[Rfam]
RNA sequence: UUUGGACCGCAGCCUAAACCGCCGGCGCUUCCUCGCCGGCCGGUACGGGGGACCCAAAUUCUCAGCCUCCGCUGAGACGGGGCGAACGCUCACUGGCGACAGUGGGCAAGGCCACUUCUGAGGCCAAGCCCGUCAGCUAACCUCGUCGGCAUUCUGGAAGGGCGAU
Numbered sequence: 001u002u003u004g005g006a007c008c009g010c011a012g013c014c015u016a017a018a019c020c021g022c023c024g025g026c027g028c029u030u031c032c033u034c035g036c037c038g039g040c041c042g043g044u045a046c047g048g049g050g051g052a053c054c055c056a057a058a059u060u061c062u063c064a065g066c067c068u069c070c071g072c073u074g075a076g077a078c079g080g081g082g083c084g085a086a087c088g089c090u091c092a093c094u095g096g097c098g099a100c101a102g103u104g105g106g107c108a109a110g111g112c113c114a115c116u117u118c119u120g121a122g123g124c125c126a127a128g129c130c131c132g133u134c135a136g137c138u139a140a141c142c143u144c145g146u147c148g149g150c151a152u153u154c155u156g157g158a159a160g161g162g163c164g165a166u
Stems, first nucleotide, its partner, number of pairs: 012150003018044003045146006055079001080131003088107008110125004
RNA: c-di-AMP riboswitch aptamer (ydaO/yuaA leader)
Organism: Opitutaceae bacterium EW11